[Rfam]
Nucleotides: 060
Stems, first nucleotide, its partner, number of pairs: 001058016019041005
Number, partner (000 for none) and nucleotide at each position: 001058a002057c003056a004055u005054g006053c007052u008051u009050c010049u011048u012047u013046a014045u015044a016043u017000c018000c019041c020040c021039a022038u023037a024000c025000g026000g027000a028000u029000u030000a031000c032000g033000u034000u035000g036000c037023u038022a039021u040020g041019g042000a043016a044015u045014g046013u047012a048011a049010g050009g051008a052007a053006g054005u055004g056003u057002g058001u059000g060000g
Overview:
The family of this 60-nucleotide RNA from Canis lupus is "mir-1 microRNA precursor family". The base pairs follow the family's consensus structure, which was predicted with RNAalifold. This family represents the microRNA (miRNA) mir-1 family. miRNAs are transcribed as ~70nt precursors (modelled here) and subsequently processed by the Dicer enzyme to give a ~22nt product. In this case the mature sequence comes from the 3' arm of the precursor. The extents of the hairpin precursors are not generally known and are estimated based on hairpin prediction. It is one of the family's seed sequences.